[Rfam]
RNA sequence: CAUAUAUUUUAUGAUAGUAUGAUCCUAAACCCGCAACGGGAGGAUUGUGCCUGAUAUUCAUAUC
Numbered sequence: 001c002a003u004a005u006a007u008u009u010u011a012u013g014a015u016a017g018u019a020u021g022a023u024c025c026u027a028a029a030c031c032c033g034c035a036a037c038g039g040g041a042g043g044a045u046u047g048u049g050c051c052u053g054a055u056a057u058u059c060a061u062a063u064c
Stems, first nucleotide, its partner, number of pairs: 002063004017050009031039003
RNA: Selenocysteine insertion sequence 1